Rfam assigns this 77-nucleotide RNA sequence from Roseococcus sp. SYP-B2431 to the family "chrB-a RNA". A search with the family's covariance model found it, with a score of 63 bits. The source organism's lineage runs through Bacteria, Pseudomonadati, Alphaproteobacteria, Acetobacterales and Roseococcus.
RNA sequence: CGCAAGGGGCAUUCGCGAUCGCCCCGUGAGGCUUCGGCCCAAGCAUCGCAUCCUGCUCGUAUGGAUGCCCCAUCAUG
Numbered sequence: 001c002g003c004a005a006g007g008g009g010c011a012u013u014c015g016c017g018a019u020c021g022c023c024c025c026g027u028g029a030g031g032c033u034u035c036g037g038c039c040c041a042a043g044c045a046u047c048g049c050a051u052c053c054u055g056c057u058c059g060u061a062u063g064g065a066u067g068c069c070c071c072a073u074c075a076u077g
Base pairs, nucleotide, nucleotide: 006025007024008023009022010021048068049067050066051065052064053063